[Rfam]
RNA sequence: CAGGGCUUGAAACAUGAAUCGCACCUUCCGCCUACUUGGUCUACUACUAAACGCAUCUUAUUUGCGCGGUAGACUGGUGGGCGACAAUCAGCGUUGAUUCAAGCCUCCAGACAGAAAAAACCCGCGCCAAUGCGCGGGUUUUUUU
Numbered sequence: 001c002a003g004g005g006c007u008u009g010a011a012a013c014a015u016g017a018a019u020c021g022c023a024c025c026u027u028c029c030g031c032c033u034a035c036u037u038g039g040u041c042u043a044c045u046a047c048u049a050a051a052c053g054c055a056u057c058u059u060a061u062u063u064g065c066g067c068g069g070u071a072g073a074c075u076g077g078u079g080g081g082c083g084a085c086a087a088u089c090a091g092c093g094u095u096g097a098u099u100c101a102a103g104c105c106u107c108c109a110g111a112c113a114g115a116a117a118a119a120a121c122c123c124g125c126g127c128c129a130a131u132g133c134g135c136g137g138g139u140u141u142u143u144u145u
Stems, first nucleotide, its partner, number of pairs: 003106001005104005011098001013096002015093002029083008044072005052066004117142011